[Rfam]
RNA: int-alpA RNA
Organism: Methylococcus sp. EFPC2
RNA sequence: ACCACGCCUAGCCCGGCCAGGCGACAAGCAGGACUCCUUCACCUGCUGGCGUGGUUCCUAUCUUGAAGG
Numbered sequence: 001a002c003c004a005c006g007c008c009u010a011g012c013c014c015g016g017c018c019a020g021g022c023g024a025c026a027a028g029c030a031g032g033a034c035u036c037c038u039u040c041a042c043c044u045g046c047u048g049g050c051g052u053g054g055u056u057c058c059u060a061u062c063u064u065g066a067a068g069g
Stems, first nucleotide, its partner, number of pairs: 001055008011022003028046005036069006